Overview: This 75-nucleotide sequence from Micromonospora wenchangensis belongs to the Rfam family "ASpks TB sRNA". It scores 88 bits against the family's covariance model. Taxonomically the source falls in Micromonospora (Bacteria, Actinomycetes, Micromonosporales, Micromonosporaceae). Rfam classes the family as an antisense RNA.
[Rfam]
RNA sequence: CUUGAUCGAACCCAGCCACAACGGCCGGUCCCCGGGACGCCCCUGCCCGUACGUGGCCAGCAGGGCCUGCGCCUC
Numbered sequence: 001c002u003u004g005a006u007c008g009a010a011c012c013c014a015g016c017c018a019c020a021a022c023g024g025c026c027g028g029u030c031c032c033c034g035g036g037a038c039g040c041c042c043c044u045g046c047c048c049g050u051a052c053g054u055g056g057c058c059a060g061c062a063g064g065g066c067c068u069g070c071g072c073c074u075c
Stems, first nucleotide, its partner, number of pairs: 015025003031071001033069001038065001043060003047056003